RNA sequence: GGCGGUUCUUGGGUGACACACCCUGGAAUCAGGGUGUGUCACCUGAGAACCGCA
Numbered sequence: 001g002g003c004g005g006u007u008c009u010u011g012g013g014u015g016a017c018a019c020a021c022c023c024u025g026g027a028a029u030c031a032g033g034g035u036g037u038g039u040c041a042c043c044u045g046a047g048a049a050c051c052g053c054a
Stems, first nucleotide, its partner, number of pairs: 002053002005050013019036005025030001
Shown here is a 54-nucleotide RNA from Myotis davidii, a member of the family "mir-9223 microRNA precursor family". NCBI's taxonomy places the organism under Eukaryota, Metazoa, Vertebrata, Vespertilionidae, Myotis. Pairs were carried over by alignment from the consensus structure, which was predicted with RNAalifold. A search with the family's covariance model found it, with a score of 54 bits.